[Rfam]
RNA sequence: UUGAAUACAUUGAAGUUUUCUCGUAUAACCUCAACGAUAUGGGUUGAGGGUCUCUACUGGAAACCGUAAAUUUCCUAGCUACGAGAAAAAUCUGCUUUUUG
Numbered sequence: 001u002u003g004a005a006u007a008c009a010u011u012g013a014a015g016u017u018u019u020c021u022c023g024u025a026u027a028a029c030c031u032c033a034a035c036g037a038u039a040u041g042g043g044u045u046g047a048g049g050g051u052c053u054c055u056a057c058u059g060g061a062a063a064c065c066g067u068a069a070a071u072u073u074c075c076u077a078g079c080u081a082c083g084a085g086a087a088a089a090a091u092c093u094g095c096u097u098u099u100u101g
Stems, first nucleotide, its partner, number of pairs: 018087008029049007058077001059075005
Dot-bracket structure: .................((((((((...(((((((.......)))))))........((((((.......))))).)..))))))))..............

The family of this 101-nucleotide RNA sequence from Thermoflavimicrobium dichotomicum is "Purine riboswitch aptamer". The match comes from Rfam's covariance-model search (79 bits). Gene Ontology term of the family: purine nucleobase biosynthetic process. The family's consensus secondary structure is taken from published work.